[Rfam]
RNA sequence: GAACAAAAAAACGAAUAGCCUCAUAUAAUCCUUGGGAAUAUGGCCCAAAAGUUUCUACCUAAUGACCGUAAAUUAUUAGACUAUGAGCGAAAGUGUUUUUGCA
Number, nucleotide and partner (000 for none) at each position: 001g000002a000003a000004c000005a000006a000007a000008a000009a000010a000011a000012c000013g000014a000015a000016u000017a000018g000019c000020c087021u086022c085023a084024u083025a082026u000027a000028a000029u050030c000031c000032u048033u047034g046035g045036g044037a000038a000039u000040a000041u000042g000043g000044c036045c035046c034047a033048a032049a000050a029051g000052u000053u000054u000055c000056u000057a000058c000059c079060u078061a077062a076063u075064g074065a073066c000067c000068g000069u000070a000071a000072a000073u065074u064075a063076u062077u061078a060079g059080a000081c000082u025083a024084u023085g022086a021087g020088c000089g000090a000091a000092a000093g000094u000095g000096u000097u000098u000099u000100u000101g000102c000103a000
RNA: Purine riboswitch aptamer
Organism: Alkalihalobacillus trypoxylicola